[Rfam]
RNA sequence: UGUUAAAAAUUUCAUCCAUUUUUAGUAUUAAAAACUGUCAUGAAUGACAAAAUAACCAAACAGUUACACAUAGUGUGCCACAUAUACCUUAUGCUGAAGUAUAGGGAUCAAUUUUUAAUAGAAAAAAUUGGUGAUAUUUUUAACA
Numbered sequence: 001u002g003u004u005a006a007a008a009a010u011u012u013c014a015u016c017c018a019u020u021u022u023u024a025g026u027a028u029u030a031a032a033a034a035c036u037g038u039c040a041u042g043a044a045u046g047a048c049a050a051a052a053u054a055a056c057c058a059a060a061c062a063g064u065u066a067c068a069c070a071u072a073g074u075g076u077g078c079c080a081c082a083u084a085u086a087c088c089u090u091a092u093g094c095u096g097a098a099g100u101a102u103a104g105g106g107a108u109c110a111a112u113u114u115u116u117a118a119u120a121g122a123a124a125a126a127a128u129u130g131g132u133g134a135u136a137u138u139u140u141u142a143a144c145a
Base pairs, nucleotide, nucleotide: 002144003143004142005141006140007139008138009137010136012134013133014132015131016130018128019127020126021125022124023123026120028118029117030116031115032114033113

The record is a 145-nucleotide sequence from Gossypium lobatum, which matches "MIR7502 microRNA precursor family" in Rfam. The family's consensus secondary structure was predicted with RNAalifold. The organism belongs to Gossypium, within Eukaryota.